[Rfam]
Nucleotides: 086
Stems, first nucleotide, its partner, number of pairs: 002081002005078003012070004017066004025062003029058001
Number, partner (000 for none) and nucleotide at each position: 001000a002081c003080a004000c005078c006077g007076g008000c009000g010000u011000a012070g013069c014068u015067c016000a017066g018065g019064g020063g021000u022000u023000a024000c025062u026061u027060c028000u029058a030000u031000c032000g033000c034000c035000a036000a037000u038000g039000a040000u041000a042000a043000u044000c045000c046000u047000c048000c049000c050000g051000u052000u053000a054000g055000g056000g057000a058029u059000c060027g061026a062025a063020c064019c065018c066017c067015g068014g069013g070012c071000a072000c073000a074000g075000u076007c077006c078005g079000a080003u081002g082000u083000u084000u085000u086000u
The family of this 86-nucleotide RNA from Triplophysa tibetana is "Vault RNA". Rfam 15.1 lists 2,873 matches to the family in 431 species. From the family's description: This family of RNAs are found as part of the enigmatic vault ribonucleoprotein complex. The complex consists of a major vault protein (MVP), two minor vault proteins (VPARP and TEP1), and several small untranslated RNA molecules. It is annotated as a non-coding RNA gene.